[Rfam]
RNA: Bacterial RNase P class B
RNA sequence: GAAUGCGGGUAGUCGCUGUCGCAGCCGUUUUUGACGGCGGGCGAUAGAGGAAAGUCCAGGCUCGCCCAGGCUGAGAUGUCUGGAGUGUUCGUACCUGGUGCAAACCAGGGCAGUGAGGCAUUGCGCUUUGCUGACGGCGCGAAAAGGGUUCUCUAGUAGACCCGAGUACGCUGAAAGUGCCACAGAAACGUAGCUUUUCUGGCGACAGAAAAGAUGGAACGCGGUAAACCCUGCGAGCGAGAAACCCAAAUUUGGUAGGGGAACCGUCCUGAAGGAAUCAAACGGAAGGGACGGAUGGCAAUUUUGCCAUAGAUAGAUGGCUACCGCUCUUUGUGCGAGGGGAUGCCCCGAUUGCAGCACGGGAGAGACAGAACCUGGCUUAUAGCA
Numbered sequence: 001g002a003a004u005g006c007g008g009g010u011a012g013u014c015g016c017u018g019u020c021g022c023a024g025c026c027g028u029u030u031u032u033g034a035c036g037g038c039g040g041g042c043g044a045u046a047g048a049g050g051a052a053a054g055u056c057c058a059g060g061c062u063c064g065c066c067c068a069g070g071c072u073g074a075g076a077u078g079u080c081u082g083g084a085g086u087g088u089u090c091g092u093a094c095c096u097g098g099u100g101c102a103a104a105c106c107a108g109g110g111c112a113g114u115g116a117g118g119c120a121u122u123g124c125g126c127u128u129u130g131c132u133g134a135c136g137g138c139g140c141g142a143a144a145a146g147g148g149u150u151c152u153c154u155a156g157u158a159g160a161c162c163c164g165a166g167u168a169c170g171c172u173g174a175a176a177g178u179g180c181c182a183c184a185g186a187a188a189c190g191u192a193g194c195u196u197u198u199c200u201g202g203c204g205a206c207a208g209a210a211a212a213g214a215u216g217g218a219a220c221g222c223g224g225u226a227a228a229c230c231c232u233g234c235g236a237g238c239g240a241g242a243a244a245c246c247c248a249a250a251u252u253u254g255g256u257a258g259g260g261g262a263a264c265c266g267u268c269c270u271g272a273a274g275g276a277a278u279c280a281a282a283c284g285g286a287a288g289g290g291a292c293g294g295a296u297g298g299c300a301a302u303u304u305u306g307c308c309a310u311a312g313a314u315a316g317a318u319g320g321c322u323a324c325c326g327c328u329c330u331u332u333g334u335g336c337g338a339g340g341g342g343a344u345g346c347c348c349c350g351a352u353u354g355c356a357g358c359a360c361g362g363g364a365g366a367g368a369c370a371g372a373a374c375c376u377g378g379c380u381u382a383u384a385g386c387a
Stems, first nucleotide, its partner, number of pairs: 004387003007383001008325007016047006052381003056378005061241005066083006089236005094109006110135001111133009136231002139171003146163004177229002179225003194213008245260003264294007295310006327365004332361005